[Rfam]
This 100-nucleotide sequence from Kandleria vitulina belongs to the Rfam family "SAM riboswitch aptamer (S box leader)". The SAM riboswitch is found upstream of a number of genes which code for proteins involved in methionine or cysteine biosynthesis in Gram-positive bacteria. The SAM riboswitch acts at the level of transcription termination control. The predicted structure consists of a complex stem-loop region followed by a single stem loop terminator region. An alternative and mutually exclusive form involves bases in the 3' segment of helix 1 with those in the 5' region of helix 5 to form a structure termed the anti-terminator form. This entry represents the conserved core of the complex structure involving helices 1-4. The base pairs follow the family's consensus structure, which is taken from published work. NCBI's taxonomy places the organism under Bacteria, Bacillati, Bacillota, Kandleria, Kandleria vitulina.
RNA sequence: CUCUUAUUAAGAACCACAUAGAUGAGGAUCGUUUUAAAGUGGUGGCAACCCUUUAUGAAGAAGGUGCCUUUACCUAGCAAGGAAACUUGAACAAUAAGAG
Numbered sequence: 001c002u003c004u005u006a007u008u009a010a011g012a013a014c015c016a017c018a019u020a021g022a023u024g025a026g027g028a029u030c031g032u033u034u035u036a037a038a039g040u041g042g043u044g045g046c047a048a049c050c051c052u053u054u055a056u057g058a059a060g061a062a063g064g065u066g067c068c069u070u071u072a073c074c075u076a077g078c079a080a081g082g083a084a085a086c087u088u089g090a091a092c093a094a095u096a097a098g099a100g
Stems, first nucleotide, its partner, number of pairs: 001100008013043005021030003026075001027073001044068004049064002051060003078089004